[Rfam]
RNA sequence: CCUCCUUCUUGGCGUACUCGUGGUUGUUUUUGUACCUUUGUAUGUAUGUAGGGAGGGAUAAUAGAGCCAGUGCAAUGUCUUCGGUGCCAGCAUGUUCCCAUCGGCUGGUUCUAUCCUCAAUCACUGGAACACGU
Numbered sequence: 001c002c003u004c005c006u007u008c009u010u011g012g013c014g015u016a017c018u019c020g021u022g023g024u025u026g027u028u029u030u031u032g033u034a035c036c037u038u039u040g041u042a043u044g045u046a047u048g049u050a051g052g053g054a055g056g057g058a059u060a061a062u063a064g065a066g067c068c069a070g071u072g073c074a075a076u077g078u079c080u081u082c083g084g085u086g087c088c089a090g091c092a093u094g095u096u097c098c099c100a101u102c103g104g105c106u107g108g109u110u111c112u113a114u115c116c117u118c119a120a121u122c123a124c125u126g127g128a129a130c131a132c133g134u
Stems, first nucleotide, its partner, number of pairs: 001056005013044005020037001022036003068126005087108005
Overview:
The family of this 134-nucleotide sequence from Sinocyclocheilus rhinocerous is "Small nucleolar RNA SNORA57". By type it is an H/ACA-box small nucleolar RNA. The organism belongs to Sinocyclocheilus, within Eukaryota. Rfam's curators write: U99 belongs to the H/ACA class of snoRNAs which are thought to guide the sites of modification of uridines to pseudouridines, the target for this family is unknown. Rfam 15.1 lists 1,736 matches to the family in 530 species. On this family, see Vitali et al., Nucleic Acids Res 2003: "Identification of 13 novel human modification guide RNAs".